The family of this 86-nucleotide RNA from Camphora micrantha is "mir-160 microRNA precursor family". A reference for the family is Rhoades et al. (2002), "Prediction of plant microRNA targets", Cell. The base pairs follow the family's consensus structure, which was predicted with PFOLD. The family has 7 seed sequences and 1,502 matches in Rfam 15.1. The organism belongs to Camphora, within Eukaryota.
RNA sequence: AUAUGCCUGGCUCCCUGUAUGCCAUUUGCAAAGUCAAAUCAUGUGUUGAUUGACUUCGUGGAUGGCGUGCGAGGAGCCAUGCAUGU
Numbered sequence: 001a002u003a004u005g006c007c008u009g010g011c012u013c014c015c016u017g018u019a020u021g022c023c024a025u026u027u028g029c030a031a032a033g034u035c036a037a038a039u040c041a042u043g044u045g046u047u048g049a050u051u052g053a054c055u056u057c058g059u060g061g062a063u064g065g066c067g068u069g070c071g072a073g074g075a076g077c078c079a080u081g082c083a084u085g086u
Base pairs, nucleotide, nucleotide: 001086002085003084004083005082006081008079009078010077011076012075013074014073016071017070018069019068020067021066022065023064024063027060028059029058